[Rfam]
RNA: pan motif
Organism: Salibacterium salarium
RNA sequence: CAGGCAAUAUCCGUUAGGAAUUGCACUUCACUUUUACUUGGGUUUUGACAGUUCUGCCUUGAUCUAUUUGGUUGGACAAGGACGGAGAA
Numbered sequence: 001c002a003g004g005c006a007a008u009a010u011c012c013g014u015u016a017g018g019a020a021u022u023g024c025a026c027u028u029c030a031c032u033u034u035u036a037c038u039u040g041g042g043u044u045u046u047g048a049c050a051g052u053u054c055u056g057c058c059u060u061g062a063u064c065u066a067u068u069u070g071g072u073u074g075g076a077c078a079a080g081g082a083c084g085g086a087g088a089a
Stems, first nucleotide, its partner, number of pairs: 002027002004024005010019002054085003057081005063076003